[Rfam]
The family of this 206-nucleotide RNA sequence from Medicago truncatula is "MIR2670 microRNA precursor family". The source organism's lineage runs through Eukaryota, Euphyllophyta, Spermatophyta, Mesangiospermae and Medicago. The base pairs follow the family's consensus structure, which was predicted with RNAalifold.
RNA sequence: GGAGGGGAAAAAAUAGGCCAACCGAUUUGGCGGCACAAAGAGGUCAACCCUUGGGGUAAAAGUAAAUUUGCUUCUUUUUACCCCAAAUUUUUUUUACCGUGGGUAAAAAGACUCUUUCUUGGGGUAUCAAAAAAAACCAGAUUUAGAUUUACCUCAAGGAUUGAUAUCCUUUUGCCCCAAGCAGGUUGGUCUCUUUUUUCCCCAAC
Numbered sequence: 001g002g003a004g005g006g007g008a009a010a011a012a013a014u015a016g017g018c019c020a021a022c023c024g025a026u027u028u029g030g031c032g033g034c035a036c037a038a039a040g041a042g043g044u045c046a047a048c049c050c051u052u053g054g055g056g057u058a059a060a061a062g063u064a065a066a067u068u069u070g071c072u073u074c075u076u077u078u079u080a081c082c083c084c085a086a087a088u089u090u091u092u093u094u095u096a097c098c099g100u101g102g103g104u105a106a107a108a109a110g111a112c113u114c115u116u117u118c119u120u121g122g123g124g125u126a127u128c129a130a131a132a133a134a135a136a137c138c139a140g141a142u143u144u145a146g147a148u149u150u151a152c153c154u155c156a157a158g159g160a161u162u163g164a165u166a167u168c169c170u171u172u173u174g175c176c177c178c179a180a181g182c183a184g185g186u187u188g189g190u191c192u193c194u195u196u197u198u199u200c201c202c203c204a205a206c
Base pairs, nucleotide, nucleotide: 004203005202006201007200008199009198010197011196012195013194015192016191017190018189019188020187021186022185023184026181027180028179029178030177032176033175034174035173043168046165047161049159051157052156053155054154055153057151058150059149060148063145064144065143066142067141068140069139070138072136073135075133076132077131078130079126080125081124082123083122084121085120086119090110091109092108093107094106095105096104097103098102